[Rfam]
RNA: TPP riboswitch aptamer (THI element)
Nucleotides: 101
Base pairs, nucleotide, nucleotide: 006089007088008087009086010085011053012052013051014050016047017027018026019025020024035046036045037044038043059082060081061080062079064075065074066073
Number, partner (000 for none) and nucleotide at each position: 001000u002000c003000u004000a005000u006089c007088c008087a009086c010085g011053a012052g013051g014050g015000g016047a017027g018026c019025c020024a021000g022000u023000u024020u025019g026018g027017c028000u029000g030000a031000g032000a033000g034000u035046g036045a037044a038043c039000c040000a041000u042000a043038g044037u045036u046035c047016u048000g049000a050014c051013c052012c053011u054000u055000u056000g057000a058000a059082c060081c061080u062079g063000u064075u065074a066073g067000u068000u069000a070000g071000u072000a073066c074065u075064a076000u077000c078000g079062u080061a081060g082059g083000g084000a085010u086009g087008u088007g089006g090000c091000a092000g093000u094000u095000u096000u097000a098000u099000u100000u101000c